The family of this 367-nucleotide sequence from Dongia mobilis is "Alphaproteobacteria transfer-messenger RNA". The family's consensus secondary structure is taken from published work. On this family, see Williams, Nucleic Acids Res 2002: "The tmRNA Website: invasion by an intron". From the family's description: Bacterial tmRNA, also known as 10Sa RNA or SsrA, is named for its dual tRNA and mRNA-like properties. Its role is to liberate the mRNA from a stalled ribosome. To accomplish this part of the tmRNA is used as a reading frame that ends in a translation stop signal. The broken mRNA is replaced in the ribosome by the tmRNA and translation of the tmRNA leads to addition of a proteolysis tag to the incomplete protein enabling recognition by a protease. Recently a number of permuted tmRNA genes have been found encoded in two parts. tmRNAs have been identified in eubacteria and some chloroplasts but are absent from archaeal and eukaryote nuclear genomes.
[Rfam]
RNA sequence: GGCCUUUCACAUCCUGCCCGGGGGGCCUAUAUUAAGCGUGUCGGGCAACCGACUAUGGCGAUAAACGCCGUGUGGAAUAAGCGUUACGGACCCGGGGGCGGUACCCGGCGCCUCCACCAUAAACCCUUUUGGUACAGUCGCUUACGGGCGCCUGUGCGGGGCUUCAUGGGGGCGAAACAGGAUCGACGUGCGCGGUAAAGACGCGGUUUUUGCUCGGUAUGGUACCCGCCGUUAUCGGGCCAAACCUAGAGAUGCCAACGACAACGUUGCAUCCGAUCUCCGUAUGGCUGCCUAACAUCCCUAACGGGCUGUAAGUAGCUGACGAGAACGCGGUACCGGGGGGCGCCGGGCAACAGAAAGCCCCCCA
Numbered sequence: 001g002g003c004c005u006u007u008c009a010c011a012u013c014c015u016g017c018c019c020g021g022g023g024g025g026c027c028u029a030u031a032u033u034a035a036g037c038g039u040g041u042c043g044g045g046c047a048a049c050c051g052a053c054u055a056u057g058g059c060g061a062u063a064a065a066c067g068c069c070g071u072g073u074g075g076a077a078u079a080a081g082c083g084u085u086a087c088g089g090a091c092c093c094g095g096g097g098g099c100g101g102u103a104c105c106c107g108g109c110g111c112c113u114c115c116a117c118c119a120u121a122a123a124c125c126c127u128u129u130u131g132g133u134a135c136a137g138u139c140g141c142u143u144a145c146g147g148g149c150g151c152c153u154g155u156g157c158g159g160g161g162c163u164u165c166a167u168g169g170g171g172g173c174g175a176a177a178c179a180g181g182a183u184c185g186a187c188g189u190g191c192g193c194g195g196u197a198a199a200g201a202c203g204c205g206g207u208u209u210u211u212g213c214u215c216g217g218u219a220u221g222g223u224a225c226c227c228g229c230c231g232u233u234a235u236c237g238g239g240c241c242a243a244a245c246c247u248a249g250a251g252a253u254g255c256c257a258a259c260g261a262c263a264a265c266g267u268u269g270c271a272u273c274c275g276a277u278c279u280c281c282g283u284a285u286g287g288c289u290g291c292c293u294a295a296c297a298u299c300c301c302u303a304a305c306g307g308g309c310u311g312u313a314a315g316u317a318g319c320u321g322a323c324g325a326g327a328a329c330g331c332g333g334u335a336c337c338g339g340g341g342g343g344c345g346c347c348g349g350g351c352a353a354c355a356g357a358a359a360g361c362c363c364c365c366c367a
Stems, first nucleotide, its partner, number of pairs: 040053005057214005067207007082192003086189003092108005109174007215231004220242003225238002331348004339364004